RNA sequence: CUAACCGAGGAGCGCUGCGACAGGGUUCCCUGCCAGGCUCGGUUUUCGCGCACUGCGCGGCAAGAACGGCGCUCACCUGUC
Numbered sequence: 001c002u003a004a005c006c007g008a009g010g011a012g013c014g015c016u017g018c019g020a021c022a023g024g025g026u027u028c029c030c031u032g033c034c035a036g037g038c039u040c041g042g043u044u045u046u047c048g049c050g051c052a053c054u055g056c057g058c059g060g061c062a063a064g065a066a067c068g069g070c071g072c073u074c075a076c077c078u079g080u081c
Base pairs, nucleotide, nucleotide: 003044004043005042006041007040008039021032022031023030024029
RNA: SAH (S-adenosyl-L-homocysteine) riboswitch aptamer
Organism: Chitinimonas taiwanensis